[Rfam]
RNA sequence: UCAUACGGAUUGCUGAUCUGUAUGAUCCAUACGGAUUGGCAAUCCAUAUGGUCGUACGGAUUGUUGAUCCGUAUGUGCAUAC
Numbered sequence: 001u002c003a004u005a006c007g008g009a010u011u012g013c014u015g016a017u018c019u020g021u022a023u024g025a026u027c028c029a030u031a032c033g034g035a036u037u038g039g040c041a042a043u044c045c046a047u048a049u050g051g052u053c054g055u056a057c058g059g060a061u062u063g064u065u066g067a068u069c070c071g072u073a074u075g076u077g078c079a080u081a082c
Base pairs, nucleotide, nucleotide: 002075003074004073005072006071007070008069009068010067011066012065014063015062016061017060018059019058020057021056022055023054024053025052027051028050029049030048031047033045034044035043036042037041
This 82-nucleotide RNA sequence from Glycine max belongs to the Rfam family "MIR4380 microRNA precursor family".
Gene Ontology terms of the family: miRNA-mediated post-transcriptional gene silencing and RISC complex.
The base pairs follow the family's consensus structure, which was predicted with RNAalifold.
It is one of the family's seed sequences.
The source organism's lineage runs through Eukaryota, eudicotyledons, Pentapetalae, Fabaceae and Glycine subgen. Soja.
Rfam 15.1 lists 8 matches to the family in 2 species.